RNA sequence: AUUGGAUCAAUGAUGUGAUAAAAAUACGCGCUGUCUGUCUGCAGUUUCUUUCGAAGAAUUGAUGACAAUAAGUAUUUCUGAGAUCCAAA
Numbered sequence: 001a002u003u004g005g006a007u008c009a010a011u012g013a014u015g016u017g018a019u020a021a022a023a024a025u026a027c028g029c030g031c032u033g034u035c036u037g038u039c040u041g042c043a044g045u046u047u048c049u050u051u052c053g054a055a056g057a058a059u060u061g062a063u064g065a066c067a068a069u070a071a072g073u074a075u076u077u078c079u080g081a082g083a084u085c086c087a088a089a
Stems, first nucleotide, its partner, number of pairs: 002088006
This 89-nucleotide sequence from Handroanthus impetiginosus belongs to the Rfam family "Small nucleolar RNA snoR27". It is annotated as a C/D-box small nucleolar RNA. On this family, see Brown et al., RNA 2001: "Multiple snoRNA gene clusters from Arabidopsis". NCBI's taxonomy places the organism under Eukaryota, Spermatophyta, Gunneridae, Bignoniaceae, Handroanthus.